[Rfam]
RNA sequence: CGCCCAUCCAGAGCGGCCGAGAGAUCUGGCUCGUCGACGCCGCAGCAACCAGCCCGUCCGCGGACGAGGCAGGUGCUCCCGCCAGGACCGAUGGAGG
Numbered sequence: 001c002g003c004c005c006a007u008c009c010a011g012a013g014c015g016g017c018c019g020a021g022a023g024a025u026c027u028g029g030c031u032c033g034u035c036g037a038c039g040c041c042g043c044a045g046c047a048a049c050c051a052g053c054c055c056g057u058c059c060g061c062g063g064a065c066g067a068g069g070c071a072g073g074u075g076c077u078c079c080c081g082c083c084a085g086g087a088c089c090g091a092u093g094g095a096g097g
Base pairs, nucleotide, nucleotide: 001097004094005093006092007091008090013043014042015041016040017039021032022031023030026085027084028083029082044077045076046075047074049073050072052070053069054068081089
The record is a 97-nucleotide RNA sequence from Quadrisphaera granulorum, which matches "SAM riboswitch aptamer (S box leader)" in Rfam. Taxonomically the source falls in Quadrisphaera (Bacteria, Bacillati, Actinomycetota, Actinomycetes).